[Rfam]
RNA sequence: AUUUAAUAUGGUGAUGGUGUUCACCAAUUUAACCGAUUAAUAUCUGACGACGCCUACUUUCUU
Numbered sequence: 001a002u003u004u005a006a007u008a009u010g011g012u013g014a015u016g017g018u019g020u021u022c023a024c025c026a027a028u029u030u031a032a033c034c035g036a037u038u039a040a041u042a043u044c045u046g047a048c049g050a051c052g053c054c055u056a057c058u059u060u061c062u063u
Stems, first nucleotide, its partner, number of pairs: 010025004016054006035044003
About this RNA: The record is a 63-nucleotide RNA from Lactobacillus johnsonii, which matches "Fluoride riboswitch aptamer (crcB RNA motif)" in Rfam. It is one of the family's seed sequences. Rfam links the family to the GO terms positive regulation of gene expression and response to fluoride.